[Rfam]
RNA sequence: GUAUGAAAAAAAUAUAAGUCGCUCUGGAUAAGAGCGUCUGCUAAAUUACUAAAA
Numbered sequence: 001g002u003a004u005g006a007a008a009a010a011a012a013u014a015u016a017a018g019u020c021g022c023u024c025u026g027g028a029u030a031a032g033a034g035c036g037u038c039u040g041c042u043a044a045a046u047u048a049c050u051a052a053a054a
Stems, first nucleotide, its partner, number of pairs: 013043001015040002020036006
A member of the RNA family "UnaL2 LINE 3' element" from Coregonus sp. 'balchen', 54 nucleotides long. About the family: The eel long interspersed element (LINE) UnaL2 and its partner short interspersed element (SINE) share a conserved 3' tail containing a stem-loop that is critical for their retrotransposition. Presumably, the first step of retrotransposition is the recognition of their 3' tails by UnaL2-encoded reverse transcriptase. The solution structure of a 17-nucleotide RNA derived from the 3' tail of UnaL2 was determined by NMR. The literature on the family includes a 2004 paper in RNA by Baba et al., "Solution structure of an RNA stem-loop derived from the 3' conserved region of eel LINE UnaL2". The family's consensus secondary structure is taken from published work. The source organism's lineage runs through Eukaryota, Metazoa, Deuterostomia, Protacanthopterygii and Coregonus.